Shown here is a 218-nucleotide RNA from Oceanirhabdus seepicola, a member of the family "T-box leader". Rfam links the family to the GO term tRNA binding. The literature on the family includes a 1994 paper in J Bacteriol by Grundy et al., "Interaction between the acceptor end of tRNA and the T box stimulates antitermination in the Bacillus subtilis tyrS gene: a new role for the discriminator base". Rfam classes the family as a cis-regulatory leader. Pairs were carried over by alignment from the consensus structure, which is taken from published work.
[Rfam]
RNA sequence: UCAAUUGUUAUGAAGGGAAGAGUAGAAACUACAACCUUACGAGAGAGUGGAGCAUGGUGGGAGCCCAUAAGAAGUAUAGUUUUGAAAGACAUCCUGGAACUUGUUAUCUGAAACAGUUAGUAGGGUAACGCGGCUAAUCACCGUUAGAUGAUCCAAGAGAACUAUUUUAUGGAAUAGUUAAUAAGAAUGGUACCGUGGAUAUUUAUCUCACUUCUUAA
Number, nucleotide and partner (000 for none) at each position: 001u000002c000003a000004a000005u000006u000007g100008u099009u000010a000011u000012g000013a000014a000015g095016g094017g093018a092019a000020g000021a000022g000023u000024a000025g083026a082027a081028a080029c079030u078031a000032c000033a000034a000035c000036c071037u070038u069039a000040c000041g000042a000043g000044a000045g000046a000047g068048u067049g066050g065051a000052g000053c000054a000055u000056g000057g000058u000059g000060g000061g000062a000063g000064c000065c050066c049067a048068u047069a038070a037071g036072a000073a000074g000075u000076a000077u000078a030079g029080u028081u027082u026083u025084g000085a000086a000087a000088g000089a000090c000091a000092u018093c017094c016095u015096g000097g000098a000099a008100c007101u000102u000103g129104u128105u127106a126107u125108c124109u123110g000111a000112a000113a000114c000115a000116g000117u000118u000119a000120g000121u000122a000123g109124g108125g107126u106127a105128a104129c103130g000131c143132g142133g141134c000135u000136a000137a000138u000139c000140a000141c133142c132143g131144u000145u000146a000147g000148a000149u000150g000151a000152u000153c000154c000155a000156a000157g000158a000159g000160a179161a178162c177163u176164a175165u174166u173167u000168u000169a000170u000171g000172g000173a166174a165175u164176a163177g162178u161179u160180a000181a000182u000183a000184a215185g214186a213187a212188u000189g000190g000191u000192a000193c000194c000195g211196u210197g209198g208199a000200u000201a000202u000203u000204u000205a000206u000207c000208u198209c197210a196211c195212u187213u186214c185215u184216u000217a000218a000